[Rfam]
RNA sequence: GGAAACCGCAAGGGGAGCUGUUAAAGCUGAGAUUGAACUUUUGUUCUAACCCUUUGAACCUGUUAGUUAAUGCUAGCGUAGGGAUGUGGAUAGGUAGGUAU
Numbered sequence: 001g002g003a004a005a006c007c008g009c010a011a012g013g014g015g016a017g018c019u020g021u022u023a024a025a026g027c028u029g030a031g032a033u034u035g036a037a038c039u040u041u042u043g044u045u046c047u048a049a050c051c052c053u054u055u056g057a058a059c060c061u062g063u064u065a066g067u068u069a070a071u072g073c074u075a076g077c078g079u080a081g082g083g084a085u086g087u088g089g090a091u092a093g094g095u096a097g098g099u100a101u
Base pairs, nucleotide, nucleotide: 006089007088008087009086010085011053012052013051014050016047017027018026019025035046036045037044038043059082060081061080062079063076064075065074066073
RNA: TPP riboswitch aptamer (THI element)